[Rfam]
RNA sequence: GUAGAGGAGAUGGCGCAGGGGACACGGGCUACACUUGGGGCUUCCUGCAACCUCUGGACACGUGUCCUCUUCUCCCUCCUCCCAG
Numbered sequence: 001g002u003a004g005a006g007g008a009g010a011u012g013g014c015g016c017a018g019g020g021g022a023c024a025c026g027g028g029c030u031a032c033a034c035u036u037g038g039g040g041c042u043u044c045c046u047g048c049a050a051c052c053u054c055u056g057g058a059c060a061c062g063u064g065u066c067c068u069c070u071u072c073u074c075c076c077u078c079c080u081c082c083c084a085g
Base pairs, nucleotide, nucleotide: 004081005080006079007078008077009076012075013074015072017070018069019068020067021066022065023064024063025062026061028059035057036056037055038054039053040052042049